About this RNA: A member of the RNA family "Histidine operon leader" from Opacimonas viscosa, 116 nucleotides long. Pairs were carried over by alignment from the consensus structure, which is taken from published work. For this family Rfam cites "Attenuation in amino acid biosynthetic operons" (Kolter and Yanofsky, Annu Rev Genet, 1982). At least 6 amino acid operons are known to be regulated by attenuation. In each a leader sequence of 150-200 bp is found upstream of the first gene in the operon. Rfam classes the family as a cis-regulatory leader. Rfam links the family to the GO term histidine biosynthetic process. The match comes from Rfam's covariance-model search (60 bits).
[Rfam]
Nucleotides: 116
Stems, first nucleotide, its partner, number of pairs: 008040003012035003020031001041064001043062006082111001084109011
Number, partner (000 for none) and nucleotide at each position: 001000u002000c003000a004000u005000c006000a007000u008040c009039a010038c011000c012035a013034u014033c015000a016000u017000u018000u019000a020031g021000c022000a023000u024000a025000a026000c027000c028000u029000u030000u031020c032000u033014g034013g035012u036000u037000c038010g039009u040008g041064c042000c043062g044061g045060a046059a047058g048057g049000g050000u051000u052000g053000u054000a055000u056000u057048c058047c059046u060045u061044c062043c063000a064041g065000a066000g067000g068000c069000g070000u071000a072000g073000a074000g075000u076000u077000a078000u079000c080000u081000u082111a083000c084109a085108a086107c087106c088105c089104c090103c091102g092101g093100a094099a095000g096000g097000a098000a099094u100093u101092u102091c103090g104089g105088g106087g107086g108085u109084u110000u111082u112000u113000u114000g115000u116000u